[Rfam]
RNA sequence: CUCUGCGAGGGGCGCUGCAGCAGCCAUUUCAGGGGCUGCCAGGCUCGCACGGGGCAUGUGACAUUUAACCGCGCCCAUUCGAA
Numbered sequence: 001c002u003c004u005g006c007g008a009g010g011g012g013c014g015c016u017g018c019a020g021c022a023g024c025c026a027u028u029u030c031a032g033g034g035g036c037u038g039c040c041a042g043g044c045u046c047g048c049a050c051g052g053g054g055c056a057u058g059u060g061a062c063a064u065u066u067a068a069c070c071g072c073g074c075c076c077a078u079u080c081g082a083a
Stems, first nucleotide, its partner, number of pairs: 002051001004049005021038005
Dot-bracket structure: .(.(((((............(((((........)))))......))))).)................................
Shown here is an 83-nucleotide RNA from Pseudomonas sp. SSM44, a member of the family "SAH (S-adenosyl-L-homocysteine) riboswitch aptamer". The base pairs follow the family's consensus structure, which is taken from published work. A search with the family's covariance model found it, with a score of 56 bits.